[Rfam]
RNA sequence: GUGUGAUGAUGUAAACUAAAUCAUUCUGAAAUGUGAUGUUCUCAAAGGAACCACUGAUGCAC
Dot-bracket structure: (((((....................................................)))))